[Rfam]
RNA: ASpks TB sRNA
Organism: Streptomyces sp. AJS327
RNA sequence: CUUCACCGAGCCCAGCCACAGCGGUUCGUCCCCCUGCCGGUCCUGACCGUAGGUGGCGAGCAGCGCCUGGGCCUC
Numbered sequence: 001c002u003u004c005a006c007c008g009a010g011c012c013c014a015g016c017c018a019c020a021g022c023g024g025u026u027c028g029u030c031c032c033c034c035u036g037c038c039g040g041u042c043c044u045g046a047c048c049g050u051a052g053g054u055g056g057c058g059a060g061c062a063g064c065g066c067c068u069g070g071g072c073c074u075c
Base pairs, nucleotide, nucleotide: 014026015025016024017023031071032070033069038065039064043060044059047056048055049054